[Rfam]
RNA sequence: UGGAUAGUAUCGAAAGAGCUAUACCGUUGUUAUAGAUCGUCAAGAUAAUCAAAAAGAUGAAUUCUGCUCUGAGCCAAUAGGACCGAGACAGGAAA
Numbered sequence: 001u002g003g004a005u006a007g008u009a010u011c012g013a014a015a016g017a018g019c020u021a022u023a024c025c026g027u028u029g030u031u032a033u034a035g036a037u038c039g040u041c042a043a044g045a046u047a048a049u050c051a052a053a054a055a056g057a058u059g060a061a062u063u064c065u066g067c068u069c070u071g072a073g074c075c076a077a078u079a080g081g082a083c084c085g086a087g088a089c090a091g092g093a094a095a
Base pairs, nucleotide, nucleotide: 001026002025003024004022005021006020007019008018010017011016064091065090066089067087068086069085071083074081075080
RNA: pan motif